[Rfam]
A member of the RNA family "Potassium channel RNA editing signal" from Neogobius melanostomus, 114 nucleotides long. A search with the family's covariance model found it, with a score of 90 bits. By type it is a cis-regulatory element. This family represents a group of sequences related to the human potassium channel Kv1.1 hairpin element which directs the efficient modification of an adenosine to inosine by an adenosine deaminase acting on RNA (ADAR).
RNA sequence: CUGGGAUACGGAGACAUGUACCCGAAGACGUGGUCGGGGAUGGUCGUGGGCGCGCUGUGUGCUCUGGCGGGCGUGUUGACGAUAGCCAUGCCCGUUCCGGUCAUUGUGAAUAAU
Numbered sequence: 001c002u003g004g005g006a007u008a009c010g011g012a013g014a015c016a017u018g019u020a021c022c023c024g025a026a027g028a029c030g031u032g033g034u035c036g037g038g039g040a041u042g043g044u045c046g047u048g049g050g051c052g053c054g055c056u057g058u059g060u061g062c063u064c065u066g067g068c069g070g071g072c073g074u075g076u077u078g079a080c081g082a083u084a085g086c087c088a089u090g091c092c093c094g095u096u097c098c099g100g101u102c103a104u105u106g107u108g109a110a111u112a113a114u
Base pairs, nucleotide, nucleotide: 002113004111007108008107009106010105011104013102014101015100018097020095021094037077038076040074049063050062051061